[Rfam]
RNA sequence: ACGUUCCUCACUGGAGAGAGACAAGCCGCCGAGCUUGUCCACCGAAGGGGCAAGCGGUGUCCGUCAUCCACGGCACUGUCAAUCUCUCAGGUAAAGCGGACAGCGGGGGCACU
Dot-bracket structure: .....((((.(((......(((((((......))))))).(((((..(((...((((((((..........))))))))....))))).)))........))).)))).....